The family of this 33-nucleotide sequence from Mesohalobacter halotolerans is "S16-Flavobacteria ribosomal protein leader". The match comes from Rfam's covariance-model search (43 bits). The source organism's lineage runs through Bacteria, Bacteroidota, Flavobacteriia, Flavobacteriales and Mesohalobacter. On this family, see Eckert and Weinberg, BMC Microbiol 2020: "Discovery of 20 novel ribosomal leader candidates in bacteria and archaea".
[Rfam]
RNA sequence: UUUAAUAAUCGGGUCGUGAACCCAAAAUUUAAA
Numbered sequence: 001u002u003u004a005a006u007a008a009u010c011g012g013g014u015c016g017u018g019a020a021c022c023c024a025a026a027a028u029u030u031a032a033a
Stems, first nucleotide, its partner, number of pairs: 001033005011023004